[Rfam]
RNA sequence: GGCCGAUGAUGCUAUAAAUAUAAGAGUAGUGGACAGAAGGGAUUUCUGAGAACUCUAUUCUGAGGCU
Numbered sequence: 001g002g003c004c005g006a007u008g009a010u011g012c013u014a015u016a017a018a019u020a021u022a023a024g025a026g027u028a029g030u031g032g033a034c035a036g037a038a039g040g041g042a043u044u045u046c047u048g049a050g051a052a053c054u055c056u057a058u059u060c061u062g063a064g065g066c067u
Stems, first nucleotide, its partner, number of pairs: 001067004
Dot-bracket structure: ((((...........................................................))))
A member of the RNA family "Small nucleolar RNA SNORD75" from Pelodiscus sinensis, 67 nucleotides long. NCBI's taxonomy places the organism under Eukaryota, Sarcopterygii, Dipnotetrapodomorpha, Archelosauria, Pelodiscus. Pairs were carried over by alignment from the consensus structure, which was predicted with RNAalifold. A reference for the family is Smith and Steitz (1998), "Classification of gas5 as a multi-small-nucleolar-RNA (snoRNA) host gene and a member of the 5'-terminal oligopyrimidine gene family reveals common features of snoRNA host genes", Mol Cell Biol. Gene Ontology terms of the family: RNA processing and nucleolus.